[Rfam]
RNA sequence: UGUUUUCGACUGUAUUUGACUGUAUUCACGGCGUGAAACAGGGGAUUACACUGUUUUUAAACGGAAAGUGUAUCAAUUAACAUAAUAGACUACU
Numbered sequence: 001u002g003u004u005u006u007c008g009a010c011u012g013u014a015u016u017u018g019a020c021u022g023u024a025u026u027c028a029c030g031g032c033g034u035g036a037a038a039c040a041g042g043g044g045a046u047u048a049c050a051c052u053g054u055u056u057u058u059a060a061a062c063g064g065a066a067a068g069u070g071u072a073u074c075a076a077u078u079a080a081c082a083u084a085a086u087a088g089a090c091u092a093c094u
Base pairs, nucleotide, nucleotide: 001092002091007088009086011084012083013082015080016079018078019077021075022074024073025072027070028069029068032063033062034061035057036056037055038054039053040052041051
Dot-bracket structure: ((....(.(.(((.((.((.((.((.(((..((((((((((.........)))))))...)))....))).)))).)))).))).).)..))..